[Rfam]
RNA sequence: AAGACUACUGUGGGAGAGAAUGUAAUAAUACGUCACCGAAGGGGCAAAUCUUUAAAAGAGAUGAAUCUCUCAGGUAAAAGGACCGCUGUAGGACA
Numbered sequence: 001a002a003g004a005c006u007a008c009u010g011u012g013g014g015a016g017a018g019a020a021u022g023u024a025a026u027a028a029u030a031c032g033u034c035a036c037c038g039a040a041g042g043g044g045c046a047a048a049u050c051u052u053u054a055a056a057a058g059a060g061a062u063g064a065a066u067c068u069c070u071c072a073g074g075u076a077a078a079a080g081g082a083c084c085g086c087u088g089u090a091g092g093a094c095a
Base pairs, nucleotide, nucleotide: 006090007089008088010086011085012084013083020033021032022031023030035075036074037073038071039070042069043068044067048062049061050060051059